The family of this 83-nucleotide RNA sequence from Oryza nivara is "MIR814 microRNA precursor family". Taxonomically the source falls in Oryza (Eukaryota, Streptophyta, Embryophyta, Poales). Its family is annotated with RISC complex and miRNA-mediated post-transcriptional gene silencing in the Gene Ontology. Pairs were carried over by alignment from the consensus structure, which was predicted with RNAalifold.
RNA sequence: ACCGGAUGGGACAUUUCCUAGUACUACGAAUCUGGACAGGCAGCCUGUCCAGAUUCAUAGUACUAGGAAAUGUCCCAUCCGGU
Numbered sequence: 001a002c003c004g005g006a007u008g009g010g011a012c013a014u015u016u017c018c019u020a021g022u023a024c025u026a027c028g029a030a031u032c033u034g035g036a037c038a039g040g041c042a043g044c045c046u047g048u049c050c051a052g053a054u055u056c057a058u059a060g061u062a063c064u065a066g067g068a069a070a071u072g073u074c075c076c077a078u079c080c081g082g083u
Stems, first nucleotide, its partner, number of pairs: 001083008010074007018066009028056011